[Rfam]
RNA sequence: UUUCAUAGCUGGGGGAGCCGUAAGGCUGAGAGGGGGCAGAGGCCCCGACCCUUGGAACCUGACACGGAUUAUACCGUCGUAGGGAAGCACCGCGCAGACCGC
Numbered sequence: 001u002u003u004c005a006u007a008g009c010u011g012g013g014g015g016a017g018c019c020g021u022a023a024g025g026c027u028g029a030g031a032g033g034g035g036g037c038a039g040a041g042g043c044c045c046c047g048a049c050c051c052u053u054g055g056a057a058c059c060u061g062a063c064a065c066g067g068a069u070u071a072u073a074c075c076g077u078c079g080u081a082g083g084g085a086a087g088c089a090c091c092g093c094g095c096a097g098a099c100c101g102c
Stems, first nucleotide, its partner, number of pairs: 008088003011052004017026003033046005058083004064077004
Rfam assigns this 102-nucleotide RNA from Desulfonatronum sp. SC1 to the family "TPP riboswitch aptamer (THI element)". The source organism's lineage runs through Bacteria, Pseudomonadati, Desulfovibrionia, Desulfovibrionales and Desulfonatronum.